RNA sequence: AGGGCUUCAUUUUCUUUGGAUAGCUUAAUUUGGCUUACACUAAAUUGUGUGUGUGCAGCUAUGUUUGAUUGAAGCCCAGAUAUACGUUCUCCUCGCUAUCCGGUGCAACCUUUAUGUUGUAUUUGGACGUUGGAGAACUACAUUC
Numbered sequence: 001a002g003g004g005c006u007u008c009a010u011u012u013u014c015u016u017u018g019g020a021u022a023g024c025u026u027a028a029u030u031u032g033g034c035u036u037a038c039a040c041u042a043a044a045u046u047g048u049g050u051g052u053g054u055g056c057a058g059c060u061a062u063g064u065u066u067g068a069u070u071g072a073a074g075c076c077c078a079g080a081u082a083u084a085c086g087u088u089c090u091c092c093u094c095g096c097u098a099u100c101c102g103g104u105g106c107a108a109c110c111u112u113u114a115u116g117u118u119g120u121a122u123u124u125g126g127a128c129g130u131u132g133g134a135g136a137a138c139u140a141c142a143u144u145c
Base pairs, nucleotide, nucleotide: 002077003076004075005074008071009070016067023064024063031061032060033059034058035057036055039054040053086138087137088136089135090134091133092132094129095128099127100126101125102124103123105117106116107115
This 145-nucleotide sequence from Quercus lobata belongs to the Rfam family "Small nucleolar RNA snoR136". The family's consensus secondary structure was predicted with mfold. NCBI's taxonomy places the organism under Eukaryota, Euphyllophyta, Spermatophyta, Gunneridae, Quercus.